The family of this 136-nucleotide sequence from Otariodibacter oris is "CpoB/ybgF ICR thermometer". It is annotated as an RNA thermoregulator. The organism belongs to Otariodibacter, within Bacteria. Rfam links the family to the GO terms regulation of translation and response to temperature stimulus. Imprinting control region from upstream of cpoB/ybgF (tol/pal system protein). The base pairs follow the family's consensus structure.
RNA sequence: CAAAUGUUUCAACAGUUUCUUAUGGUGAAGAAAAACCAGCAGUAUUAGGUCACACAGAAGCUGAUUAUGCUAAAAACCGUCGUGCAGUAUUAGAAUACUAAUUUUGUAUGAUGUUAAACAAAGCCUCGAUUUUUUC
Numbered sequence: 001c002a003a004a005u006g007u008u009u010c011a012a013c014a015g016u017u018u019c020u021u022a023u024g025g026u027g028a029a030g031a032a033a034a035a036c037c038a039g040c041a042g043u044a045u046u047a048g049g050u051c052a053c054a055c056a057g058a059a060g061c062u063g064a065u066u067a068u069g070c071u072a073a074a075a076a077c078c079g080u081c082g083u084g085c086a087g088u089a090u091u092a093g094a095a096u097a098c099u100a101a102u103u104u105u106g107u108a109u110g111a112u113g114u115u116a117a118a119c120a121a122a123g124c125c126u127c128g129a130u131u132u133u134u135u136c
Stems, first nucleotide, its partner, number of pairs: 001048001003046002008042002015036004020031002056134001058132003063127002068122001076115001079112007087104001089102003